The record is a 356-nucleotide RNA sequence from Altererythrobacter lutimaris, which matches "Alphaproteobacteria transfer-messenger RNA" in Rfam.
The source organism's lineage runs through Bacteria, Pseudomonadati, Pseudomonadota, Sphingomonadales and Altererythrobacter.
The base pairs follow the family's consensus structure, which is taken from published work.
It scores 223 bits against the family's covariance model.
RNA sequence: UCACUUCACAUUAAGCGGGCAGGGCCUAUAUAGGUCCUGCCCGUUUUUGCGGGCUAUGGCGAUAAAUUGCGCUGUGUAAUAGAUGCAAGGGACCCGGGGGCAGUACCCGGCGGCUCCACCAUAAAGCCCGGAAAUCGAACGAGAAAUCCGGGCCUCAUGAAGGGGCCGAACUAGGAUCGACCUGUGUUGAAAAGCAGUGUUUUUGCCCGGGCUGAGUAACCCGUAAAACUGUUCAAAACUCAUAAGUGCAAACGAUAACGAAGCACUCGCUCUCGCAGCGUAAUGUGACGGCCUAACGGCCUGAAUUUACAAAGCUAAAGCGCGGUUGGACCCACCGGGCAACAGAAGCGGAUUCC
Numbered sequence: 001u002c003a004c005u006u007c008a009c010a011u012u013a014a015g016c017g018g019g020c021a022g023g024g025c026c027u028a029u030a031u032a033g034g035u036c037c038u039g040c041c042c043g044u045u046u047u048u049g050c051g052g053g054c055u056a057u058g059g060c061g062a063u064a065a066a067u068u069g070c071g072c073u074g075u076g077u078a079a080u081a082g083a084u085g086c087a088a089g090g091g092a093c094c095c096g097g098g099g100g101c102a103g104u105a106c107c108c109g110g111c112g113g114c115u116c117c118a119c120c121a122u123a124a125a126g127c128c129c130g131g132a133a134a135u136c137g138a139a140c141g142a143g144a145a146a147u148c149c150g151g152g153c154c155u156c157a158u159g160a161a162g163g164g165g166c167c168g169a170a171c172u173a174g175g176a177u178c179g180a181c182c183u184g185u186g187u188u189g190a191a192a193a194g195c196a197g198u199g200u201u202u203u204u205g206c207c208c209g210g211g212c213u214g215a216g217u218a219a220c221c222c223g224u225a226a227a228a229c230u231g232u233u234c235a236a237a238a239c240u241c242a243u244a245a246g247u248g249c250a251a252a253c254g255a256u257a258a259c260g261a262a263g264c265a266c267u268c269g270c271u272c273u274c275g276c277a278g279c280g281u282a283a284u285g286u287g288a289c290g291g292c293c294u295a296a297c298g299g300c301c302u303g304a305a306u307u308u309a310c311a312a313a314g315c316u317a318a319a320g321c322g323c324g325g326u327u328g329g330a331c332c333c334a335c336c337g338g339g340c341a342a343c344a345g346a347a348g349c350g351g352a353u354u355c356c
Stems, first nucleotide, its partner, number of pairs: 039054005058207005069200007084186003088183003094110005111168007208223004213235003219230001323337004328354002331351002
Dot-bracket structure: ......................................(((((......)))))...(((((......(((((((........(((.(((...(((((.......)))))(((((((............................................)))))))............)))))).......)))))))..)))))((((.[[[...[))))......]..]]].......................................................................................((((.[[.[[.))))............]].]]..